[Rfam]
RNA: Small nucleolar RNA SNORD35
Organism: Salmo salar
RNA sequence: UGCAAAUUAUGUUUUUCUCACGAUGGUCUUCCGAGCCUGAGGCUCUGAUGACACUGCCUAAUGGCAACACUGAUGCAGUUAU
Numbered sequence: 001u002g003c004a005a006a007u008u009a010u011g012u013u014u015u016u017c018u019c020a021c022g023a024u025g026g027u028c029u030u031c032c033g034a035g036c037c038u039g040a041g042g043c044u045c046u047g048a049u050g051a052c053a054c055u056g057c058c059u060a061a062u063g064g065c066a067a068c069a070c071u072g073a074u075g076c077a078g079u080u081a082u
Stems, first nucleotide, its partner, number of pairs: 001077004